This 76-nucleotide sequence from Xanthomonas oryzae belongs to the Rfam family "Xanthomonas sRNA sX9". Rfam classes the family as a small RNA. The match comes from Rfam's covariance-model search (54 bits).

[Rfam]
RNA sequence: AUGGGUCACUUGGACACUGCGGUGCUGCGCGCGCGGUCCACACCGCCUGACGGCUGCUCGCGACGUUGUGUUGGUC
Dot-bracket structure: .((..(.....)..))...(.((.(.....).)).)..........((((((................))))))..
For this family Rfam cites "Genome-wide transcriptome analysis of the plant pathogen Xanthomonas identifies sRNAs with putative virulence functions" (Schmidtke et al., Nucleic Acids Res, 2011). Pairs were carried over by alignment from the consensus structure, which was predicted with RNAalifold. Rfam 15.1 lists 309 matches to the family in 52 species. NCBI's taxonomy places the organism under Bacteria, Pseudomonadati, Lysobacterales, Xanthomonas oryzae, Xanthomonas oryzae pv. oryzae.